[Rfam]
Overview:
Rfam assigns this 84-nucleotide sequence from Triticum aestivum to the family "Small nucleolar RNA R16". A reference for the family is Galardi et al. (2002), "Purified box C/D snoRNPs are able to reproduce site-specific 2'-O-methylation of target RNA in vitro", Mol Cell Biol. It scores 80 bits against the family's covariance model. By type it is a C/D-box small nucleolar RNA. The family has 18 seed sequences and 884 matches in Rfam 15.1.
RNA sequence: GGUGGCAAAUGAGGUGAAAUAUUGUAUGCUAAACACUGAAUCUUUGAUAUGUUUACAAAACUCCGCUUAUUAUCUGAUGCCACA
Numbered sequence: 001g002g003u004g005g006c007a008a009a010u011g012a013g014g015u016g017a018a019a020u021a022u023u024g025u026a027u028g029c030u031a032a033a034c035a036c037u038g039a040a041u042c043u044u045u046g047a048u049a050u051g052u053u054u055a056c057a058a059a060a061c062u063c064c065g066c067u068u069a070u071u072a073u074c075u076g077a078u079g080c081c082a083c084a
Stems, first nucleotide, its partner, number of pairs: 003082005
Dot-bracket structure: ..(((((......................................................................)))))..